[Rfam]
RNA sequence: GGCAGGGUAGCUCAGCGGUAGAGCAGGGGACUCAUAAGCCCUUGGUCGGGAGUUCGAUUCUCCCCCUUGCCA
Numbered sequence: 001g002g003c004a005g006g007g008u009a010g011c012u013c014a015g016c017g018g019u020a021g022a023g024c025a026g027g028g029g030a031c032u033c034a035u036a037a038g039c040c041c042u043u044g045g046u047c048g049g050g051a052g053u054u055c056g057a058u059u060c061u062c063c064c065c066c067u068u069g070c071c072a
Base pairs, nucleotide, nucleotide: 001071002070003069004068005067006066007065010024011023012022013021026042027041028040029039048064049063050062051061052060
Dot-bracket structure: (((((((..((((.......)))).((((.........)))).....(((((.......)))))))))))).

Shown here is a 72-nucleotide sequence from a Verrucomicrobiaceae bacterium, a member of the family "tRNA".
By type it is a transfer RNA.
The family's consensus secondary structure is taken from published work.